[Rfam]
RNA sequence: CAGAGUGGGCAGUCGGUGUCAAUCUGCAACAAAAGCAGUUUGACCCUUGUGCUUGUUUCGGC
Number, nucleotide and partner (000 for none) at each position: 001c000002a000003g058004a057005g056006u055007g054008g053009g052010c051011a050012g000013u000014c000015g046016g045017u000018g044019u043020c042021a041022a040023u000024c038025u037026g036027c035028a000029a000030c000031a000032a000033a000034a000035g027036c026037a025038g024039u000040u022041u021042g020043a019044c018045c016046c015047u000048u000049g000050u011051g010052c009053u008054u007055g006056u005057u004058u003059c000060g000061g000062c000